[Rfam]
RNA sequence: UCCCUGGUGGUCUAGUGGUUAGGAUGUGGCACUGCCACUGCCUGGGUUCAAUUCCCAGUCAGGGAA
Numbered sequence: 001u002c003c004c005u006g007g008u009g010g011u012c013u014a015g016u017g018g019u020u021a022g023g024a025u026g027u028g029g030c031a032c033u034g035c036c037a038c039u040g041c042c043u044g045g046g047u048u049c050a051a052u053u054c055c056c057a058g059u060c061a062g063g064g065a066a
Base pairs, nucleotide, nucleotide: 001065002064003063004062005061006060007059010025011024012023013022027037028036029035030034042058043057044056045055046054
RNA: tRNA